[Rfam]
RNA sequence: CAGGGGGAGAGGGGUGUCUCUCAGCCCAGAUUGUGAGAGGGCACAGGCCAGGCUGAGGGACCCCACAGGUGCACG
Numbered sequence: 001c002a003g004g005g006g007g008a009g010a011g012g013g014g015u016g017u018c019u020c021u022c023a024g025c026c027c028a029g030a031u032u033g034u035g036a037g038a039g040g041g042c043a044c045a046g047g048c049c050a051g052g053c054u055g056a057g058g059g060a061c062c063c064c065a066c067a068g069g070u071g072c073a074c075g
Base pairs, nucleotide, nucleotide: 004072006070012064013063014062016061017060018059019058020057021056022055023054024053025052026051029048031046032045033044034043035042
The family of this 75-nucleotide sequence from Myotis davidii is "mir-9193 microRNA precursor family".